[Rfam]
RNA sequence: GUUUUUCUGUGUGUGGAAGGUGUUCAGCACCAAGGACAGGUUUUCCUGUGUGUGGAAGGUGUUCAGCGCCAAGGACAGGUUUGCGUGUGU
Numbered sequence: 001g002u003u004u005u006u007c008u009g010u011g012u013g014u015g016g017a018a019g020g021u022g023u024u025c026a027g028c029a030c031c032a033a034g035g036a037c038a039g040g041u042u043u044u045c046c047u048g049u050g051u052g053u054g055g056a057a058g059g060u061g062u063u064c065a066g067c068g069c070c071a072a073g074g075a076c077a078g079g080u081u082u083g084c085g086u087g088u089g090u
Stems, first nucleotide, its partner, number of pairs: 006079005019070006026063006034051001036049005
Rfam assigns this 90-nucleotide RNA from Branchiostoma belcheri to the family "mir-2060 microRNA precursor family". The organism belongs to Branchiostoma, within Eukaryota. Pairs were carried over by alignment from the consensus structure, which was predicted with RNAalifold. Rfam links the family to the GO terms miRNA-mediated post-transcriptional gene silencing and RISC complex. The family has 7 seed sequences and 3,696 matches in Rfam 15.1.